[Rfam]
RNA sequence: UAUGAAACAGGGCAAAGUCUUUGAAAGAAGAUGACGCAAAGCCGUGGGUCUAAAGCUAAAAGCUAUGAUUGCCAGGUCGCCAUU
Numbered sequence: 001u002a003u004g005a006a007a008c009a010g011g012g013c014a015a016a017g018u019c020u021u022u023g024a025a026a027g028a029a030g031a032u033g034a035c036g037c038a039a040a041g042c043c044g045u046g047g048g049u050c051u052a053a054a055g056c057u058a059a060a061a062g063c064u065a066u067g068a069u070u071g072c073c074a075g076g077u078c079g080c081c082a083u084u
Base pairs, nucleotide, nucleotide: 012037013036017032018031019030020029021028022027041077042076043075045074046073047072048069049068050067055063056062057061
Dot-bracket structure: ...........((...((((((....))))))...))...(((.((((((....(((...)))...)))..)))))).......